[Rfam]
RNA sequence: UUCUUAUCAAGAGAGGUGGAGGGAAAAGGGCCCUGUGAAACCCGGCAACCUGCUUCAUUAAGUUGAGUGUGGUGCCAAUUCCAGCAAGUUUUUGCAAGAUAAGAA
Numbered sequence: 001u002u003c004u005u006a007u008c009a010a011g012a013g014a015g016g017u018g019g020a021g022g023g024a025a026a027a028g029g030g031c032c033c034u035g036u037g038a039a040a041c042c043c044g045g046c047a048a049c050c051u052g053c054u055u056c057a058u059u060a061a062g063u064u065g066a067g068u069g070u071g072g073u074g075c076c077a078a079u080u081c082c083a084g085c086a087a088g089u090u091u092u093u094g095c096a097a098g099a100u101a102a103g104a105a
Stems, first nucleotide, its partner, number of pairs: 001105008013043001015042003021033003029082002044076004049072002051069004080097001085094003
RNA: SAM riboswitch aptamer (S box leader)
Organism: Clostridium sartagoforme